[Rfam]
This 351-nucleotide RNA from Pestivirus sp. belongs to the Rfam family "Pestivirus internal ribosome entry site (IRES) including 5'UTR SLI". Rfam's curators write: This family represents the internal ribosome entry site (IRES) of the the pestiviruses. The pestivirus IRES allows cap and end-independent translation of mRNA in the host cell. The IRES achieves this by mediating the internal initiation of translation by recruiting a ribosomal 43S pre-initiation complex directly to the initiation codon and eliminates the requirement for eIF4F. The classical swine virus UTR described in appears to be longer at the 5' end than other pestivirus UTRs. This family represents the conserved core. The family is grouped with related families in Rfam's "IRES1 clan".

RNA sequence: CUCGUGUACAAAAUUGGGCAUAUAAAUUUCUGAUUCGAUUAGGGAAUCCCUCUAGCGACGGCCGAACUGGGCUAGCCAUGCCCAUAGUAGGACUAGCAAACGGAGGGACUAGCCGUAGCGGUGAGCUCCCUGGGAAGUCUAAGCCCUGAGUACAGGGUAGUCGUCAGUAGUUCGACGUGGACGAGAGUCCAUCUCGAGAUGCUACGUGGACGAGGGCAUGCCCAAGACAUACCUUAACCCAGGCGGGGGUCGUCUGGGUGAAAUCACUUAGCGUGAUGGGGGUACAACCUGAUAGGGUGCUGCAGAGGCCCGCUAUUAGGCUAGUAUAAAAAUCUCUGCUGUACAUGGCAC
Numbered sequence: 001c002u003c004g005u006g007u008a009c010a011a012a013a014u015u016g017g018g019c020a021u022a023u024a025a026a027u028u029u030c031u032g033a034u035u036c037g038a039u040u041a042g043g044g045a046a047u048c049c050c051u052c053u054a055g056c057g058a059c060g061g062c063c064g065a066a067c068u069g070g071g072c073u074a075g076c077c078a079u080g081c082c083c084a085u086a087g088u089a090g091g092a093c094u095a096g097c098a099a100a101c102g103g104a105g106g107g108a109c110u111a112g113c114c115g116u117a118g119c120g121g122u123g124a125g126c127u128c129c130c131u132g133g134g135a136a137g138u139c140u141a142a143g144c145c146c147u148g149a150g151u152a153c154a155g156g157g158u159a160g161u162c163g164u165c166a167g168u169a170g171u172u173c174g175a176c177g178u179g180g181a182c183g184a185g186a187g188u189c190c191a192u193c194u195c196g197a198g199a200u201g202c203u204a205c206g207u208g209g210a211c212g213a214g215g216g217c218a219u220g221c222c223c224a225a226g227a228c229a230u231a232c233c234u235u236a237a238c239c240c241a242g243g244c245g246g247g248g249g250u251c252g253u254c255u256g257g258g259u260g261a262a263a264u265c266a267c268u269u270a271g272c273g274u275g276a277u278g279g280g281g282g283u284a285c286a287a288c289c290u291g292a293u294a295g296g297g298u299g300c301u302g303c304a305g306a307g308g309c310c311c312g313c314u315a316u317u318a319g320g321c322u323a324g325u326a327u328a329a330a331a332a333u334c335u336c337u338g339c340u341g342u343a344c345a346u347g348g349c350a351c
Stems, first nucleotide, its partner, number of pairs: 048107006055097002060094002062091002068084005108325007115316007122286002125283006132234003136230001137228004143158006161213005167205005172197004177192006214223003237259010263277005287298004300341001302339006